The record is a 122-nucleotide RNA sequence from Cerasibacillus terrae, which matches "SAM riboswitch aptamer (S box leader)" in Rfam.
The base pairs follow the family's consensus structure, which is taken from published work.
NCBI's taxonomy places the organism under Bacteria, Bacillota, Bacilli, Bacillaceae, Cerasibacillus.
The match comes from Rfam's covariance-model search (79 bits).
RNA sequence: UCCUUAUCAAGAGAAGUCGAGGGACUGACCCGAUGACACUUCAGCAACCAUGCAGGUUACGUACUGCAACGGUGCUAAUUUCAGUGGUUCAACUUUAUUUUGUUGAUACCAGAAGAUGAGGA
Numbered sequence: 001u002c003c004u005u006a007u008c009a010a011g012a013g014a015a016g017u018c019g020a021g022g023g024a025c026u027g028a029c030c031c032g033a034u035g036a037c038a039c040u041u042c043a044g045c046a047a048c049c050a051u052g053c054a055g056g057u058u059a060c061g062u063a064c065u066g067c068a069a070c071g072g073u074g075c076u077a078a079u080u081u082c083a084g085u086g087g088u089u090c091a092a093c094u095u096u097a098u099u100u101u102g103u104u105g106a107u108a109c110c111a112g113a114a115g116a117u118g119a120g121g122a
Stems, first nucleotide, its partner, number of pairs: 001122008013042005021031003025084004043076004048072002051068004080114001085111004